The family of this 127-nucleotide RNA sequence from Bos taurus is "Small nucleolar RNA SNORA25". The base pairs follow the family's consensus structure, which was predicted with RNAfold. Rfam classes the family as an H/ACA-box small nucleolar RNA. Gene Ontology terms of the family: RNA processing and nucleolus. From the family's description: ACA25 is a member of the H/ACA class of snoRNA that guide the sites of modification of uridines to pseudouridines.

RNA sequence: AGGUCAUUUCAAAGAGGGCUUAUGAGACCAAAACCGGGAGCUCUUAAUGCUGUGACCAAAGAUUGAAGUUCUCCAUAGAAUAUUACGGUCACUCAAAAGUGCUAUGUUUUCCUAAGGAGAUAAGAUU
Numbered sequence: 001a002g003g004u005c006a007u008u009u010c011a012a013a014g015a016g017g018g019c020u021u022a023u024g025a026g027a028c029c030a031a032a033a034c035c036g037g038g039a040g041c042u043c044u045u046a047a048u049g050c051u052g053u054g055a056c057c058a059a060a061g062a063u064u065g066a067a068g069u070u071c072u073c074c075a076u077a078g079a080a081u082a083u084u085a086c087g088g089u090c091a092c093u094c095a096a097a098a099g100u101g102c103u104a105u106g107u108u109u110u111c112c113u114a115a116g117g118a119g120a121u122a123a124g125a126u127u
Base pairs, nucleotide, nucleotide: 002057003056004055005054006053007052014045015044016043017042018041019040020039021038023037026035070120071119072118073117074116077113078112080110085105087103088102090101091100092099093098